[Rfam]
About this RNA
Rhizobiales sRNA Atu_Ti1: a 92-nucleotide sequence from Phyllobacterium sp. YR531. The base pairs follow the family's consensus structure, which was predicted with WAR. The match comes from Rfam's covariance-model search (60 bits). The family's RNA type in Rfam is small RNA. On this family, see Wilms et al., RNA Biol 2012: "Deep sequencing uncovers numerous small RNAs on all four replicons of the plant pathogen Agrobacterium tumefaciens". The organism belongs to Phyllobacterium, within Bacteria.

RNA sequence: GUCCACGUUGCGGCGGACCAAAGCCAAAAGGCGAUCAUGGCAAUGGUGGCAGCCAGCCACCAUCGCGUCGUCAUGACGGUAAGGCCGGUGGU
Numbered sequence: 001g002u003c004c005a006c007g008u009u010g011c012g013g014c015g016g017a018c019c020a021a022a023g024c025c026a027a028a029a030g031g032c033g034a035u036c037a038u039g040g041c042a043a044u045g046g047u048g049g050c051a052g053c054c055a056g057c058c059a060c061c062a063u064c065g066c067g068u069c070g071u072c073a074u075g076a077c078g079g080u081a082a083g084g085c086c087g088g089u090g091g092u
Stems, first nucleotide, its partner, number of pairs: 001018004023047004049092002052089003056085003063082001065080002